[Rfam]
RNA sequence: UCCCCUGCUUUUCCUCCCUGAGCAGGUGCCUUGCGUGAUGACAGCGUCAAGGCUUUGCAGCCUCGGUCGUCCACCUCGUGGAUACCGGGGCUCUUUCUUU
Numbered sequence: 001u002c003c004c005c006u007g008c009u010u011u012u013c014c015u016c017c018c019u020g021a022g023c024a025g026g027u028g029c030c031u032u033g034c035g036u037g038a039u040g041a042c043a044g045c046g047u048c049a050a051g052g053c054u055u056u057g058c059a060g061c062c063u064c065g066g067u068c069g070u071c072c073a074c075c076u077c078g079u080g081g082a083u084a085c086c087g088g089g090g091c092u093c094u095u096u097c098u099u100u
Stems, first nucleotide, its partner, number of pairs: 004026006028053006059092008

The record is a 100-nucleotide RNA from Scleromatobacter humisilvae, which matches "Burkholderia RNA 7 (anti-hemB)" in Rfam.
This RNA motif was identified by computational search in b-proteobacteria Burkholderia. Co-purified with Hfq, expression confirmed by Northern blot.
It is annotated as a small RNA.
A search with the family's covariance model found it, with a score of 50 bits.
Rfam links the family to the GO terms bacterial biofilm matrix and protein binding.